[Rfam]
RNA sequence: GGCCUCCUGGUGCUUACUGCAGGCCAUGUUCUUACACUGACUGUACAGAAAGAGGACUCAUAGUAGACCUCCCCCCUAUACACCCAGCUCAGGCCUUGCGGUCUGUAUUGUGCCAUAAGGGGACAUGG
Numbered sequence: 001g002g003c004c005u006c007c008u009g010g011u012g013c014u015u016a017c018u019g020c021a022g023g024c025c026a027u028g029u030u031c032u033u034a035c036a037c038u039g040a041c042u043g044u045a046c047a048g049a050a051a052g053a054g055g056a057c058u059c060a061u062a063g064u065a066g067a068c069c070u071c072c073c074c075c076c077u078a079u080a081c082a083c084c085c086a087g088c089u090c091a092g093g094c095c096u097u098g099c100g101g102u103c104u105g106u107a108u109u110g111u112g113c114c115a116u117a118a119g120g121g122g123a124c125a126u127g128g
Stems, first nucleotide, its partner, number of pairs: 002059001005056004020043003027036003072120002077115001085105003089101002093099002
RNA: Small nucleolar RNA SNORA51
Organism: Oryctolagus cuniculus